[Rfam]
Shown here is a 126-nucleotide RNA sequence from Christensenella minuta, a member of the family "Ribosomal protein L20 leader". From the family's description: This family is a putative r-protein leader autoregulatory structure found in B. subtilis and other low-GC Gram-positive bacteria. The family's consensus secondary structure was predicted with CMfinder. The source organism's lineage runs through Bacteria, Bacillati, Bacillota, Christensenellaceae and Christensenella. The family's RNA type in Rfam is cis-regulatory leader.
RNA sequence: AAAACAAAGCAGAAGCUGCCCGCUUCUCACCUGCACGCAAGGGUGUGCAUGGUCAAAUAACGAGCAAAUAGCGUAUUUGUUGGUAUUUUUGCGGGUAGCGUAUGCUGCCCGCUUUUUUACUGGCGG
Numbered sequence: 001a002a003a004a005c006a007a008a009g010c011a012g013a014a015g016c017u018g019c020c021c022g023c024u025u026c027u028c029a030c031c032u033g034c035a036c037g038c039a040a041g042g043g044u045g046u047g048c049a050u051g052g053u054c055a056a057a058u059a060a061c062g063a064g065c066a067a068a069u070a071g072c073g074u075a076u077u078u079g080u081u082g083g084u085a086u087u088u089u090u091g092c093g094g095g096u097a098g099c100g101u102a103u104g105c106u107g108c109c110c111g112c113u114u115u116u117u118u119a120c121u122g123g124c125g126g
Stems, first nucleotide, its partner, number of pairs: 011027006029053003034047005091112009
Dot-bracket structure: ..........((((((.....)))))).(((..(((((....)))))...))).....................................(((((((((....)))))))))..............